[Rfam]
RNA: Lysine riboswitch aptamer
Organism: Candidatus Phytoplasma australiense
RNA sequence: UUCCAAAAAAGAGGUAGCGGUGCAAAAGAGUAUUAUGUGGAGAAGGCAUUCUGUGAAGCAUAAGAAAGGUAACCAUCGCCGAAUAAUAAUUAUGGCAAUAAUUUAUUAUGAGAUUAUAGAAAAUAUCUAUAAUAUUCUUGCUGUUCUAACAGUAAAGGAGCUUUAUUAAAU
Numbered sequence: 001u002u003c004c005a006a007a008a009a010a011g012a013g014g015u016a017g018c019g020g021u022g023c024a025a026a027a028g029a030g031u032a033u034u035a036u037g038u039g040g041a042g043a044a045g046g047c048a049u050u051c052u053g054u055g056a057a058g059c060a061u062a063a064g065a066a067a068g069g070u071a072a073c074c075a076u077c078g079c080c081g082a083a084u085a086a087u088a089a090u091u092a093u094g095g096c097a098a099u100a101a102u103u104u105a106u107u108a109u110g111a112g113a114u115u116a117u118a119g120a121a122a123a124u125a126u127c128u129a130u131a132a133u134a135u136u137c138u139u140g141c142u143g144u145u146c147u148a149a150c151a152g153u154a155a156a157g158g159a160g161c162u163u164u165a166u167u168a169a170a171u
Stems, first nucleotide, its partner, number of pairs: 006166001008164004017079006025070001033063006083109006089102005110136002113133008138155007